[Rfam]
This 108-nucleotide sequence from Paenibacillus dendritiformis belongs to the Rfam family "Glycine riboswitch aptamer". A search with the family's covariance model found it, with a score of 53 bits.
RNA sequence: UGAAGAUGAACGGGAGAGACCGGGCGCCAAGUCCCGGCACCGAAGGAGCAAGCCGCCGAUACUGCCGUUCGGCGAGGAAUCUCUCAGGUAGAAGCACCGUCGUCCGAC
Numbered sequence: 001u002g003a004a005g006a007u008g009a010a011c012g013g014g015a016g017a018g019a020c021c022g023g024g025c026g027c028c029a030a031g032u033c034c035c036g037g038c039a040c041c042g043a044a045g046g047a048g049c050a051a052g053c054c055g056c057c058g059a060u061a062c063u064g065c066c067g068u069u070c071g072g073c074g075a076g077g078a079a080u081c082u083c084u085c086a087g088g089u090a091g092a093a094g095c096a097c098c099g100u101c102g103u104c105c106g107a108c
Stems, first nucleotide, its partner, number of pairs: 005104005011099003020037004039089003042085002046083003